[Rfam]
RNA sequence: AAAGCAGUAAUGCUCAAGUGAAGGAAGCGGUGUAGCAAAGCCAUCGAGCCUACGAACAGAAACCGGAUACAAGGCUAAACGGUGGGUGAGGUUGCCAUACAAACCGAAGCCCAAAAGGUAAACGUAUCACCGAGACAGUAAAUCCGGAGGUUGUGUGGCGAAAGAACUAUGU
Numbered sequence: 001a002a003a004g005c006a007g008u009a010a011u012g013c014u015c016a017a018g019u020g021a022a023g024g025a026a027g028c029g030g031u032g033u034a035g036c037a038a039a040g041c042c043a044u045c046g047a048g049c050c051u052a053c054g055a056a057c058a059g060a061a062a063c064c065g066g067a068u069a070c071a072a073g074g075c076u077a078a079a080c081g082g083u084g085g086g087u088g089a090g091g092u093u094g095c096c097a098u099a100c101a102a103a104c105c106g107a108a109g110c111c112c113a114a115a116a117g118g119u120a121a122a123c124g125u126a127u128c129a130c131c132g133a134g135a136c137a138g139u140a141a142a143u144c145c146g147g148a149g150g151u152u153g154u155g156u157g158g159c160g161a162a163a164g165a166a167c168u169a170u171g172u
Base pairs, nucleotide, nucleotide: 003014004013005012006011027172028171029170036164040159041158042157043156044155046154047152048151049150050149051148063147064146065145066144067143068142074139075138076137080132081131082130083129084112085111086110087109090105091104092103093102
Dot-bracket structure: ..((((....))))............(((......(...(((((.((((((...........((((((.....(((...((((((((..((((........))))...))))................))))....)))..))))))))))).))))))....).....)))
This 172-nucleotide RNA from [Eubacterium] infirmum belongs to the Rfam family "Group II catalytic intron D1-D4-3".